RNA sequence: CGACCCGCGUUCCCCCCGGCGCCGCCAGCCACGGGCGCUCGGGGUUUUAGCGGUGUCGCAGAGCAGCGGCGGCUCCUUCUUCACCCGGCGGAGCAAAGGAGGCUCCGGGGCUCCACCGGAUUUUGGGGGGUCGCACAAAU
Numbered sequence: 001c002g003a004c005c006c007g008c009g010u011u012c013c014c015c016c017c018g019g020c021g022c023c024g025c026c027a028g029c030c031a032c033g034g035g036c037g038c039u040c041g042g043g044g045u046u047u048u049a050g051c052g053g054u055g056u057c058g059c060a061g062a063g064c065a066g067c068g069g070c071g072g073c074u075c076c077u078u079c080u081u082c083a084c085c086c087g088g089c090g091g092a093g094c095a096a097a098g099g100a101g102g103c104u105c106c107g108g109g110g111c112u113c114c115a116c117c118g119g120a121u122u123u124u125g126g127g128g129g130g131u132c133g134c135a136c137a138a139a140u
Base pairs, nucleotide, nucleotide: 001058002057003056004055005053006052007051008050014044015043016042017041018040020037021036022035023034071132072131073130074129075128076127085119086118087117088116090114091113092112093111094110098106099105100104
RNA: Small nucleolar RNA SNORA79